[Rfam]
RNA sequence: AGCGUAUUUUGCGAUGAUCGAAGGCAGUGCGGCACUGCUUCAGCACUGCCUGAGAUGCUCGACCGCCGGUCGAAGUGAUGGUCAGGUUCAUCGACGACCAUCGAGGUGAACACGGGGUCGAGCCGAUCUGCGGCGUGCUGCCGAUCGCUCCG
Numbered sequence: 001a002g003c004g005u006a007u008u009u010u011g012c013g014a015u016g017a018u019c020g021a022a023g024g025c026a027g028u029g030c031g032g033c034a035c036u037g038c039u040u041c042a043g044c045a046c047u048g049c050c051u052g053a054g055a056u057g058c059u060c061g062a063c064c065g066c067c068g069g070u071c072g073a074a075g076u077g078a079u080g081g082u083c084a085g086g087u088u089c090a091u092c093g094a095c096g097a098c099c100a101u102c103g104a105g106g107u108g109a110a111c112a113c114g115g116g117g118u119c120g121a122g123c124c125g126a127u128c129u130g131c132g133g134c135g136u137g138c139u140g141c142c143g144a145u146c147g148c149u150c151c152g
Stems, first nucleotide, its partner, number of pairs: 016067001113152005124147002127144002130141004